[Rfam]
RNA sequence: GGGUAUUUGAGGGGAGCUGACCCUAGUACGAGAGGACCGGGUUGGACGGACCGCUGGUUUACCAGUUGUUCCGCCAGGGGCACGGCUGGGAAGCCAAGUCCGGAUGGGAUAAACGCUGAAAGCAUCUAAGCGUGAAGCCCACCCCAAGAUGAGAUACCCCACACCGAAGAGGUGGUAAGGGUCCUGGUAGACUACCAGGUAGAUAGGCCGCAUGUGUAAGCGCUGUGAGGCGUUGAGCAAGGCGGUACUAAUGACCCGAGGA
Numbered sequence: 001g002g003g004u005a006u007u008u009g010a011g012g013g014g015a016g017c018u019g020a021c022c023c024u025a026g027u028a029c030g031a032g033a034g035g036a037c038c039g040g041g042u043u044g045g046a047c048g049g050a051c052c053g054c055u056g057g058u059u060u061a062c063c064a065g066u067u068g069u070u071c072c073g074c075c076a077g078g079g080g081c082a083c084g085g086c087u088g089g090g091a092a093g094c095c096a097a098g099u100c101c102g103g104a105u106g107g108g109a110u111a112a113a114c115g116c117u118g119a120a121a122g123c124a125u126c127u128a129a130g131c132g133u134g135a136a137g138c139c140c141a142c143c144c145c146a147a148g149a150u151g152a153g154a155u156a157c158c159c160c161a162c163a164c165c166g167a168a169g170a171g172g173u174g175g176u177a178a179g180g181g182u183c184c185u186g187g188u189a190g191a192c193u194a195c196c197a198g199g200u201a202g203a204u205a206g207g208c209c210g211c212a213u214g215u216g217u218a219a220g221c222g223c224u225g226u227g228a229g230g231c232g233u234u235g236a237g238c239a240a241g242g243c244g245g246u247a248c249u250a251a252u253g254a255c256c257c258g259a260g261g262a
Stems, first nucleotide, its partner, number of pairs: 001159008011145004017045007047102005055096003062089005067082006106140003113133005162174003176259001179257004183199005204250003207246005213239002220233005
The record is a 262-nucleotide part of an RNA from Caldicellulosiruptor saccharolyticus, which matches "Bacterial large subunit ribosomal RNA" in Rfam. The family's consensus secondary structure is taken from published work. Rfam 15.1 lists 51,934 matches to the family in 10,816 species. Gene Ontology terms of the family: ribosome and structural constituent of ribosome.